[Rfam]
RNA: Iron response element I
RNA sequence: CAGGCUCUUGCUUCAACAGUGAUUGAACGGAGCCUC
Numbered sequence: 001c002a003g004g005c006u007c008u009u010g011c012u013u014c015a016a017c018a019g020u021g022a023u024u025g026a027a028c029g030g031a032g033c034c035u036c
Stems, first nucleotide, its partner, number of pairs: 002035007010028001012027005017021001